[Rfam]
RNA: FGF-1 internal ribosome entry site (IRES)
RNA sequence: GCCUCCAGGGGGAUAAGGGCAUCGCCUCCUUUUCUGGAUGGACACUCCCUUCUGAUGGUGAAUGGAAACUCCCUUCCUCAGAGCCUGCUUGCAGCGUCUUGGUAGUCCAGUGUGACUGCUGCAGUUGCUGCCAACACGCCAGAAAGAAAGCCUCCCAGAGG
Numbered sequence: 001g002c003c004u005c006c007a008g009g010g011g012g013a014u015a016a017g018g019g020c021a022u023c024g025c026c027u028c029c030u031u032u033u034c035u036g037g038a039u040g041g042a043c044a045c046u047c048c049c050u051u052c053u054g055a056u057g058g059u060g061a062a063u064g065g066a067a068a069c070u071c072c073c074u075u076c077c078u079c080a081g082a083g084c085c086u087g088c089u090u091g092c093a094g095c096g097u098c099u100u101g102g103u104a105g106u107c108c109a110g111u112g113u114g115a116c117u118g119c120u121g122c123a124g125u126u127g128c129u130g131c132c133a134a135c136a137c138g139c140c141a142g143a144a145a146g147a148a149a150g151c152c153u154c155c156c157a158g159a160g161g
Base pairs, nucleotide, nucleotide: 002161003160004159005158008156009155010154011153014147016050017049018048019047025041026040029037030036051143052142053141058079060076061075062074064073065072082129083128084127089124090123091122092121093120094119095118099114